[Rfam]
Rfam assigns this 268-nucleotide part of an RNA from Actinobaculum sp. 352 to the family "Bacterial large subunit ribosomal RNA".

RNA sequence: GAGAAUUGAGAAGGGCUGUCCCUAGUACGAGAGGACCGGGACGGACGGACCGCUGGUGUGCCAGUUGUCCCGCCAGGGGCAUGGCUGGUUGGCUACGUUCGGAAGGGAUAACCGCUGAAAGCAUCUAAGCGGGAAGCCCGCUUCAAGAUGAGUUCUCGAUCCAUGCUCUCUUGAGGGUGUGGGGGAGGUCCCCCGGAGAUGACGGGGUUGAUAGGCCGGAUGUGGAAGCCUUGUAAGGGGUGGAGCUGACCGGUACUAAUGACCGAUG
Numbered sequence: 001g002a003g004a005a006u007u008g009a010g011a012a013g014g015g016c017u018g019u020c021c022c023u024a025g026u027a028c029g030a031g032a033g034g035a036c037c038g039g040g041a042c043g044g045a046c047g048g049a050c051c052g053c054u055g056g057u058g059u060g061c062c063a064g065u066u067g068u069c070c071c072g073c074c075a076g077g078g079g080c081a082u083g084g085c086u087g088g089u090u091g092g093c094u095a096c097g098u099u100c101g102g103a104a105g106g107g108a109u110a111a112c113c114g115c116u117g118a119a120a121g122c123a124u125c126u127a128a129g130c131g132g133g134a135a136g137c138c139c140g141c142u143u144c145a146a147g148a149u150g151a152g153u154u155c156u157c158g159a160u161c162c163a164u165g166c167u168c169u170c171u172u173g174a175g176g177g178u179g180u181g182g183g184g185g186a187g188g189u190c191c192c193c194c195g196g197a198g199a200u201g202a203c204g205g206g207g208u209u210g211a212u213a214g215g216c217c218g219g220a221u222g223u224g225g226a227a228g229c230c231u232u233g234u235a236a237g238g239g240g241u242g243g244a245g246c247u248g249a250c251c252g253g254u255a256c257u258a259a260u261g262a263c264c265g266a267u268g
Base pairs, nucleotide, nucleotide: 001157002156003155004154005153006152007151010144011143012142013141016044017043018042019041020040021039022038046101047100048099049098050097054095055094056093061088062087063086064085065084066081067080068079069078070077071076105139106138107137112132113131114130115129116128161182162181163180164179165178166177167176168175187264188263189262190261191207192206193205194204195203212258213257214256215254216253217252218251219250222246228241229240230239231238232237
The match comes from Rfam's covariance-model search (2516 bits). Rfam links the family to the GO terms structural constituent of ribosome and ribosome.